[Rfam]
RNA sequence: UAUAAUCCCUCUCGUUUGCUUCGUAUAACCCCAAUGAUAUGGUUUGGGGGUCUCUACCAGUUCCCGCAAAGUGCUGAUUACGAAGAGUUGAGAUCAUCGU
Number, nucleotide and partner (000 for none) at each position: 001u000002a000003u000004a000005a000006u000007c000008c000009c000010u000011c000012u000013c000014g000015u000016u000017u000018g000019c085020u084021u083022c082023g081024u080025a079026u000027a000028a000029c049030c048031c047032c046033a045034a044035u000036g000037a000038u000039a000040u000041g000042g000043u000044u034045u033046g032047g031048g030049g029050g000051u000052c000053u000054c000055u000056a000057c000058c076059a075060g074061u073062u000063c071064c000065c000066g000067c000068a000069a000070a000071g063072u000073g061074c060075u059076g058077a000078u000079u025080a024081c023082g022083a021084a020085g019086a000087g000088u000089u000090g000091a000092g000093a000094u000095c000096a000097u000098c000099g000100u000
Rfam assigns this 100-nucleotide RNA from Vibrio alginolyticus to the family "Purine riboswitch aptamer". It is one of the family's seed sequences. Clan: Purine riboswitches. Riboswitches are metabolite binding domains within certain messenger RNAs that serve as precision sensors for their corresponding targets. Taxonomically the source falls in Vibrio alginolyticus (Bacteria, Pseudomonadati, Gammaproteobacteria, Vibrio). The family's consensus secondary structure is taken from published work.